The family of this 96-nucleotide sequence from Brassica rapa is "Small nucleolar RNA R44/J54/Z268 family". The base pairs follow the family's consensus structure, which was predicted with PFOLD. The sequence is in the family's curated seed alignment. The family's RNA type in Rfam is C/D-box small nucleolar RNA.
RNA sequence: UGUGCAAGUGACGAUAAAAAGACAGGGACAUCAGAUUCUCCUUAGGGAGAAGUAGAAUGAUGAUUAUUGUCUAAAUGGGAAUCUCUCUGAUGCACU
Numbered sequence: 001u002g003u004g005c006a007a008g009u010g011a012c013g014a015u016a017a018a019a020a021g022a023c024a025g026g027g028a029c030a031u032c033a034g035a036u037u038c039u040c041c042u043u044a045g046g047g048a049g050a051a052g053u054a055g056a057a058u059g060a061u062g063a064u065u066a067u068u069g070u071c072u073a074a075a076u077g078g079g080a081a082u083c084u085c086u087c088u089g090a091u092g093c094a095c096u
Stems, first nucleotide, its partner, number of pairs: 002095005